The family of this 266-nucleotide part of an RNA from Sediminispirochaeta smaragdinae is "Bacterial large subunit ribosomal RNA".
Lineage of the source: Bacteria > Spirochaetales > Spirochaetaceae > Sediminispirochaeta > Sediminispirochaeta smaragdinae.

RNA sequence: GGAUGAUUGAGGGGAGCUACUCCUAGUACGAGAGGACCGGGGUGGACGAACCUCUGGUGUACCAGUUGUCGUGCCAACGGCAUCUGCUGGGUAGCCAAGUUCGGAAGGGAUAACCGCUGAAAGCAUCUAAGUGGGAAGCCCACCUCAAGAUGAGUCAUCCCAUCACCUUUAAGGUGACUAAAGACACCAGGGAGAAGACCUGGUUGAUAGGCUGGAAGUCUAAGCAUGGUAACAUGUUCAGCUUACCAGUACUAAUUCGUCGUGAG
Numbered sequence: 001g002g003a004u005g006a007u008u009g010a011g012g013g014g015a016g017c018u019a020c021u022c023c024u025a026g027u028a029c030g031a032g033a034g035g036a037c038c039g040g041g042g043u044g045g046a047c048g049a050a051c052c053u054c055u056g057g058u059g060u061a062c063c064a065g066u067u068g069u070c071g072u073g074c075c076a077a078c079g080g081c082a083u084c085u086g087c088u089g090g091g092u093a094g095c096c097a098a099g100u101u102c103g104g105a106a107g108g109g110a111u112a113a114c115c116g117c118u119g120a121a122a123g124c125a126u127c128u129a130a131g132u133g134g135g136a137a138g139c140c141c142a143c144c145u146c147a148a149g150a151u152g153a154g155u156c157a158u159c160c161c162a163u164c165a166c167c168u169u170u171a172a173g174g175u176g177a178c179u180a181a182a183g184a185c186a187c188c189a190g191g192g193a194g195a196a197g198a199c200c201u202g203g204u205u206g207a208u209a210g211g212c213u214g215g216a217a218g219u220c221u222a223a224g225c226a227u228g229g230u231a232a233c234a235u236g237u238u239c240a241g242c243u244u245a246c247c248a249g250u251a252c253u254a255a256u257u258c259g260u261c262g263u264g265a266g
Stems, first nucleotide, its partner, number of pairs: 001160008011146004017045007047103005055097003062090005067082006107141003114134005163177005180263001183261003187203005208254003211250005216244003224237005
A search with the family's covariance model found it, with a score of 2846 bits. A reference for the family is Cannone et al. (2002), "The comparative RNA web (CRW) site: an online database of comparative sequence and structure information for ribosomal, intron, and other RNAs", BMC Bioinformatics.